About this RNA: The family of this 213-nucleotide RNA from Piliocolobus tephrosceles is "Small nucleolar RNA U3". Small nucleolar RNAs (snoRNAs) are involved in the processing and modification of rRNA in the nucleolus. The family's RNA type in Rfam is C/D-box small nucleolar RNA. The family is grouped with related families in Rfam's "U3 clan". The base pairs follow the family's consensus structure, which is taken from published work. The match comes from Rfam's covariance-model search (93 bits). On this family, see Zwieb, Nucleic Acids Res 1997: "The uRNA database".
RNA sequence: AAGACUAUGCUCUUGGGGGUCAUUUGUAUGGGUUGUUAUCAGGGAAGUUUCUCUAAACGUGGGGAGUACCGGAAACCAUGAGAAAAAGACAUAGUGUUUUGUUUUCUGAGCAGGAAGCCGGCAUUUGGUGUUAUGUAAGCGCCAUCUGCCAUUGAUGGUCGUUCUUCUCUCCGUUUUGGAGACGUAAGAGGGAAAGAACACGGUUUGAGCAGU
Number, nucleotide and partner (000 for none) at each position: 001a000002a000003g039004a000005c000006u035007a034008u000009g000010c031011u030012c000013u000014u028015g027016g000017g025018g024019g000020u000021c000022a000023u000024u018025u017026g000027u015028a014029u000030g011031g010032g000033u000034u007035g006036u000037u000038a000039u003040c000041a000042g000043g000044g000045a000046a000047g000048u000049u065050u064051c063052u000053c062054u061055a000056a000057a000058c000059g000060u000061g054062g053063g051064g050065a049066g000067u000068a000069c000070c000071g000072g000073a000074a000075a213076c212077c000078a000079u209080g000081a000082g000083a000084a000085a000086a000087a000088g000089a000090c000091a000092u000093a000094g201095u200096g199097u198098u197099u196100u195101g000102u000103u194104u193105u192106c191107u190108g000109a000110g162111c161112a000113g000114g000115a000116a000117g000118c000119c000120g150121g149122c148123a147124u000125u000126u144127g143128g142129u141130g000131u138132u137133a000134u000135g000136u000137a132138a131139g000140c000141g129142c128143c127144a126145u000146c000147u123148g122149c121150c120151a000152u000153u000154g000155a000156u000157g000158g000159u000160c000161g111162u110163u000164c000165u187166u186167c184168u182169c181170u180171c179172c178173g000174u000175u000176u000177u000178g172179g171180a170181g169182a168183c000184g167185u000186a166187a165188g000189a000190g107191g106192g105193a104194a103195a100196g099197a098198a097199c096200a095201c094202g000203g000204u000205u000206u000207g000208a000209g079210c000211a000212g076213u075